Shown here is a 198-nucleotide RNA from Drosophila persimilis, a member of the family "R2 RNA element". On this family, see Luan et al., Cell 1993: "Reverse transcription of R2Bm RNA is primed by a nick at the chromosomal target site: a mechanism for non-LTR retrotransposition". From the family's description: This family represents the 3' UTR region of the R2 retrotransposable element. This family is known to interact with the R2-encoded reverse transcriptase in a reaction known as target primed reverse transcription (TPRT). Its family is annotated with regulation of reverse transcription in the Gene Ontology. Rfam classes the family as a cis-regulatory element. It scores 162 bits against the family's covariance model.
RNA sequence: ACUUAGCCUAUACACUAUGUUGGAGAGAAGACGCUUGCUACCUAGGCAUAAUGUGAAAAUAGGUAUAAACAUCGUGGUUGUAAAACUUGAGGUGGGUUUUUAGUACGUAUGCGUGAUUACUUCGUAAUCAUGAAUCGUGCAUGCUAGUGGGGUUUGGCCUCCACUAGUAUCUUUGAAGAUUUUCCUUCCUCAGCGAAA
Numbered sequence: 001a002c003u004u005a006g007c008c009u010a011u012a013c014a015c016u017a018u019g020u021u022g023g024a025g026a027g028a029a030g031a032c033g034c035u036u037g038c039u040a041c042c043u044a045g046g047c048a049u050a051a052u053g054u055g056a057a058a059a060u061a062g063g064u065a066u067a068a069a070c071a072u073c074g075u076g077g078u079u080g081u082a083a084a085a086c087u088u089g090a091g092g093u094g095g096g097u098u099u100u101u102a103g104u105a106c107g108u109a110u111g112c113g114u115g116a117u118u119a120c121u122u123c124g125u126a127a128u129c130a131u132g133a134a135u136c137g138u139g140c141a142u143g144c145u146a147g148u149g150g151g152g153u154u155u156g157g158c159c160u161c162c163a164c165u166a167g168u169a170u171c172u173u174u175g176a177a178g179a180u181u182u183u184c185c186u187u188c189c190u191c192a193g194c195g196a197a198a
Base pairs, nucleotide, nucleotide: 039065040064041063042062043061044060072196073195074194075193088192089191090190091189092188094185095184096183103140104139105138106137107136112132113131114130115129116128117127118126119125120124142169143168144167145166146165147164